[Rfam]
RNA sequence: GCACUGGUGUAGCUCAGUGGUUACUUCAAUUGUCAUUUCUCUUAGAAAUAAACAACCUCCAUCCCUGUGUGGGAUCAAACCCCGGGUGCUGUCCAGUGCUUUU
Numbered sequence: 001g002c003a004c005u006g007g008u009g010u011a012g013c014u015c016a017g018u019g020g021u022u023a024c025u026u027c028a029a030u031u032g033u034c035a036u037u038u039c040u041c042u043u044a045g046a047a048a049u050a051a052a053c054a055a056c057c058u059c060c061a062u063c064c065c066u067g068u069g070u071g072g073g074a075u076c077a078a079a080c081c082c083c084g085g086g087u088g089c090u091g092u093c094c095a096g097u098g099c100u101u102u103u
Base pairs, nucleotide, nucleotide: 002098003097004096005095006094007093012087013086014085015084017083019081020080025079026078029075030074031073
Rfam assigns this 103-nucleotide RNA sequence from Neogobius melanostomus to the family "Vault RNA". A reference for the family is Stadler et al. (2009), "Evolution of Vault RNAs", Mol Biol Evol.